[Rfam]
RNA sequence: UGCUGUUCCUAGGGGGGCCUUUUUGUAGGCUGAGAUUCGGUUAUACCGUAACCCUUUGAACCUGAUCCGGGUAAUGCCGGCGAAGGGAAGGAUAAUCACCUCGCA
Numbered sequence: 001u002g003c004u005g006u007u008c009c010u011a012g013g014g015g016g017g018c019c020u021u022u023u024u025g026u027a028g029g030c031u032g033a034g035a036u037u038c039g040g041u042u043a044u045a046c047c048g049u050a051a052c053c054c055u056u057u058g059a060a061c062c063u064g065a066u067c068c069g070g071g072u073a074a075u076g077c078c079g080g081c082g083a084a085g086g087g088a089a090g091g092a093u094a095a096u097c098a099c100c101u102c103g104c105a
Base pairs, nucleotide, nucleotide: 007092008091009090010089011055012054013053014052016049017030018029019028020027038048039047040046041045061086062085063084067080068079069078070077
This 105-nucleotide RNA from Alcaligenaceae bacterium 429 belongs to the Rfam family "TPP riboswitch aptamer (THI element)". The source organism's lineage runs through Bacteria, Pseudomonadati, Pseudomonadota, Burkholderiales and Alcaligenaceae. The match comes from Rfam's covariance-model search (80 bits). The family's consensus secondary structure is taken from published work. Vitamin B(1) in its active form thiamin pyrophosphate (TPP) is an essential coenzyme that is synthesised by coupling of pyrimidine and thiazole moieties in bacteria.